[Rfam]
RNA sequence: CGGCGAGGACGGCCUCGCGCCUUGCCGAACAUCCCGGGAGGGACGACCCUG
Numbered sequence: 001c002g003g004c005g006a007g008g009a010c011g012g013c014c015u016c017g018c019g020c021c022u023u024g025c026c027g028a029a030c031a032u033c034c035c036g037g038g039a040g041g042g043a044c045g046a047c048c049c050u051g
Stems, first nucleotide, its partner, number of pairs: 003018006039050004
Background: The family of this 51-nucleotide RNA from Limobrevibacterium gyesilva is "Guanidine-II riboswitch aptamer (mini-ykkC)". Lineage of the source: Bacteria > Pseudomonadati > Alphaproteobacteria > Acetobacterales > Limobrevibacterium. Rfam describes the family as follows. Simpler in structure and has fewer highly conserved nucleotide positions than the ykkC-yxkD leader.